This 180-nucleotide RNA sequence from Salipaludibacillus keqinensis belongs to the Rfam family "Lysine riboswitch aptamer". It scores 119 bits against the family's covariance model. Rfam describes the family as follows. Riboswitches are metabolite binding domains within certain messenger RNAs that serve as precision sensors for their corresponding targets.
RNA sequence: UGAUGAGGUAGAGGCGCAAAACGUAAGAGUAGAAAACGGGAGUUGGACGACGAAGAUCGUUUUUGAAAGGAUGUUUUGCCGAAGCAUUGGCGUUCAGUCCAGAACGCAAUAGCUGGGGUUACAUUGAAUAAGUGUAACACUGUCACUUUAGGGAAACCUGAGUGGAGGACUACUGAUUUA
Numbered sequence: 001u002g003a004u005g006a007g008g009u010a011g012a013g014g015c016g017c018a019a020a021a022c023g024u025a026a027g028a029g030u031a032g033a034a035a036a037c038g039g040g041a042g043u044u045g046g047a048c049g050a051c052g053a054a055g056a057u058c059g060u061u062u063u064u065g066a067a068a069g070g071a072u073g074u075u076u077u078g079c080c081g082a083a084g085c086a087u088u089g090g091c092g093u094u095c096a097g098u099c100c101a102g103a104a105c106g107c108a109a110u111a112g113c114u115g116g117g118g119u120u121a122c123a124u125u126g127a128a129u130a131a132g133u134g135u136a137a138c139a140c141u142g143u144c145a146c147u148u149u150a151g152g153g154a155a156a157c158c159u160g161a162g163u164g165g166a167g168g169a170c171u172a173c174u175g176a177u178u179u180a
Base pairs, nucleotide, nucleotide: 007174008173009172010171011170016079017078018077019076020075021074022073023072024071032064033063034062035061036060037059038058039057083114084113085112088109090107091106092105093104094103115141116140118138119137120136121135122134123133124132125131143165144164145163146162147161148160